[Rfam]
RNA sequence: UUUAGUAGUCUAAACACGAAACUGACCUGAUGAAUCGCGAACCCCUGAAGCUUAAGCCUUAGGUCGUGACUUAAACGUGUAUAAAUAAGAGUUGAAACCUAGUUC
Number, nucleotide and partner (000 for none) at each position: 001u014002u013003u012004a011005g010006u000007a000008g000009u000010c005011u004012a003013a002014a001015c079016a078017c077018g076019a000020a000021a000022c000023u000024g036025a035026c000027c000028u000029g000030a000031u000032g000033a000034a000035u025036c024037g067038c066039g065040a064041a000042c000043c000044c063045c062046u061047g060048a000049a000050g000051c000052u000053u000054a000055a000056g000057c000058c000059u000060u047061a046062g045063g044064u040065c039066g038067u037068g000069a000070c000071u000072u000073a000074a000075a000076c018077g017078u016079g015080u000081a000082u000083a000084a000085a000086u000087a000088a000089g000090a000091g000092u000093u000094g000095a000096a000097a000098c000099c000100u000101a000102g000103u000104u000105c000